[Rfam]
The family of this 103-nucleotide sequence from Arachis hypogaea is "MIR394 microRNA precursor family". Taxonomically the source falls in Arachis (Eukaryota, Spermatophyta, Pentapetalae, Papilionoideae). The literature on the family includes a 2004 paper in Mol Cell by Jones-Rhoades and Bartel, "Computational identification of plant microRNAs and their targets, including a stress-induced miRNA". The family has 19 seed sequences and 724 matches in Rfam 15.1.
RNA sequence: GUUCCAUAGACAUUUUGGCAUUCUGUCCACCUCCAUUAUUGUUAGCUGCUAACAUUCUUUGUAGCAUUCGGAGGUAGCCAGUAUGCCAAACAGGCUCUGUGAA
Numbered sequence: 001g002u003u004c005c006a007u008a009g010a011c012a013u014u015u016u017g018g019c020a021u022u023c024u025g026u027c028c029a030c031c032u033c034c035a036u037u038a039u040u041g042u043u044a045g046c047u048g049c050u051a052a053c054a055u056u057c058u059u060u061g062u063a064g065c066a067u068u069c070g071g072a073g074g075u076a077g078c079c080a081g082u083a084u085g086c087c088a089a090a091c092a093g094g095c096u097c098u099g100u101g102a103a
Base pairs, nucleotide, nucleotide: 011093015089016088017087018086019085020084024080025079027077029075030074031073032072033071034070